RNA: ylbH leader
Organism: Tepidibacillus decaturensis
RNA sequence: AUUAAAAAAAUCCCACAGAGAAAAAAAGCCUCUGUGGGGUUAAUGCACGCAAGGUGCAUCAACGAAAUGGGAGAGGAGAAACCGGAGGAAGAGCUUAUGGGGAAACGUAAGUCUUCUCCGCGG
Numbered sequence: 001a002u003u004a005a006a007a008a009a010a011u012c013c014c015a016c017a018g019a020g021a022a023a024a025a026a027a028g029c030c031u032c033u034g035u036g037g038g039g040u041u042a043a044u045g046c047a048c049g050c051a052a053g054g055u056g057c058a059u060c061a062a063c064g065a066a067a068u069g070g071g072a073g074a075g076g077a078g079a080a081a082c083c084g085g086a087g088g089a090a091g092a093g094c095u096u097a098u099g100g101g102g103a104a105a106c107g108u109a110a111g112u113c114u115u116c117u118c119c120g121c122g123g
Stems, first nucleotide, its partner, number of pairs: 011039009040071002043068002083120004088116004093112005